[Rfam]
RNA sequence: GGACUCCGAUGUAACUGGCGACAAGUGGAGAUUACCACAAUGGAGCAUCGGGGAAUACGGCCGGUCGCCUGGGCAAAGAGC
Numbered sequence: 001g002g003a004c005u006c007c008g009a010u011g012u013a014a015c016u017g018g019c020g021a022c023a024a025g026u027g028g029a030g031a032u033u034a035c036c037a038c039a040a041u042g043g044a045g046c047a048u049c050g051g052g053g054a055a056u057a058c059g060g061c062c063g064g065u066c067g068c069c070u071g072g073g074c075a076a077a078g079a080g081c
Base pairs, nucleotide, nucleotide: 004053005052006051007050008049009048010047011046012045015042017069018068019067020066021065025038026037027036028035060074061073062072
RNA: ZMP/ZTP riboswitch aptamer (pfl RNA motif)